[Rfam]
RNA sequence: CUCGUGUUACGUAUACUGAAGGUAUACCGGAUAGGAUACACUCAGGAUACAUUCAGUAUACGUUUACGAG
Dot-bracket structure: .(((((..((((((((((((.((((.((.((..(....)..)).)))))).)))))))))))).))))).
Overview: mir-iab-4 microRNA precursor family: a 70-nucleotide RNA sequence from Drosophila simulans. Gene Ontology terms of the family: RISC complex and miRNA-mediated post-transcriptional gene silencing. On this family, see Berezikov et al., Nat Genet 2010: "Evolutionary flux of canonical microRNAs and mirtrons in Drosophila". NCBI's taxonomy places the organism under Eukaryota, Ecdysozoa, Arthropoda, Mandibulata, Sophophora. Rfam 15.1 lists 160 matches to the family in 157 species.